The family of this 58-nucleotide RNA from Staphylococcus carnosus is "Staphylococcus sRNA sau-5949".
Taxonomically the source falls in Staphylococcus carnosus (Bacteria, Bacillati, Staphylococcaceae, Staphylococcus).
It is one of the family's seed sequences.
RNA sequence: UUAUCUCCUUUAAUUUUGGUGUGGUUACUUUAAAUUAUAGAGAUAAUUGCGCUAUUUU
Numbered sequence: 001u002u003a004u005c006u007c008c009u010u011u012a013a014u015u016u017u018g019g020u021g022u023g024g025u026u027a028c029u030u031u032a033a034a035u036u037a038u039a040g041a042g043a044u045a046a047u048u049g050c051g052c053u054a055u056u057u058u
Stems, first nucleotide, its partner, number of pairs: 001046007011037006019028002